[Rfam]
RNA sequence: AAACCGCUGGCGAGGUACGUGCAUGUUU
Numbered sequence: 001a002a003a004c005c006g007c008u009g010g011c012g013a014g015g016u017a018c019g020u021g022c023a024u025g026u027u028u
Stems, first nucleotide, its partner, number of pairs: 001028004008023001010020003

Shown here is a 28-nucleotide sequence, a member of the family "L19-Flavobacteria ribosomal protein leader".
By type it is a cis-regulatory leader.